[Rfam]
RNA sequence: AGCAUCAACCGGCCUAAUCUCGAAAGAGAGCGGAGGAACCAAUUUUUUGGGGUUAAUUCUACUGUGUAGAAGGGAUGAGAAAACUCUUUCGCCAUCCUACCCGUCAGCUAACUUCGUCGGCUAAAGCGAAGGAGGUC
Numbered sequence: 001a002g003c004a005u006c007a008a009c010c011g012g013c014c015u016a017a018u019c020u021c022g023a024a025a026g027a028g029a030g031c032g033g034a035g036g037a038a039c040c041a042a043u044u045u046u047u048u049g050g051g052g053u054u055a056a057u058u059c060u061a062c063u064g065u066g067u068a069g070a071a072g073g074g075a076u077g078a079g080a081a082a083a084c085u086c087u088u089u090c091g092c093c094a095u096c097c098u099a100c101c102c103g104u105c106a107g108c109u110a111a112c113u114u115c116g117u118c119g120g121c122u123a124a125a126g127c128g129a130a131g132g133a134g135g136u137c
Stems, first nucleotide, its partner, number of pairs: 011122004018029003030117006040049002050102003058070004073097004
c-di-AMP riboswitch aptamer (ydaO/yuaA leader): a 137-nucleotide RNA from Rossellomorea marisflavi.